Source information: Rfam assigns this 68-nucleotide sequence from Mizuhopecten yessoensis to the family "Small nucleolar RNA SNORD58". The source organism's lineage runs through Eukaryota, Bilateria, Protostomia, Mollusca and Mizuhopecten. The family is grouped with related families in Rfam's "SNORD58 clan". By type it is a C/D-box small nucleolar RNA. The match comes from Rfam's covariance-model search (42 bits). About the family: snoRNA U58 is found in introns 1, 3 and 6 of the ribosomal protein RPL17 gene in humans.
[Rfam]
RNA sequence: CUGCUGUGAUGUAAAAUCUUAGGACACCUUAUGACACUUCUGAUUCAAACUAAUUUUAACUGAGCAGC
Numbered sequence: 001c002u003g004c005u006g007u008g009a010u011g012u013a014a015a016a017u018c019u020u021a022g023g024a025c026a027c028c029u030u031a032u033g034a035c036a037c038u039u040c041u042g043a044u045u046c047a048a049a050c051u052a053a054u055u056u057u058a059a060c061u062g063a064g065c066a067g068c
Stems, first nucleotide, its partner, number of pairs: 001067004
Dot-bracket structure: ((((...........................................................)))).